[Rfam]
The family of this 59-nucleotide RNA from Caenorhabditis briggsae is "mir-7583 microRNA precursor family". A search with the family's covariance model found it, with a score of 58 bits. Pairs were carried over by alignment from the consensus structure, which was predicted with RNAalifold.
RNA sequence: AGUUACAAAUAUCGUGAUGGGAUUGAAAGGUGUCCUUGCCAUCCGGUGUUUGUGGUUGG
Numbered sequence: 001a002g003u004u005a006c007a008a009a010u011a012u013c014g015u016g017a018u019g020g021g022a023u024u025g026a027a028a029g030g031u032g033u034c035c036u037u038g039c040c041a042u043c044c045g046g047u048g049u050u051u052g053u054g055g056u057u058g059g
Base pairs, nucleotide, nucleotide: 001057002056003055004054005053006052007051008050009049010048012046013045014044016043017042018041019040020039022037025033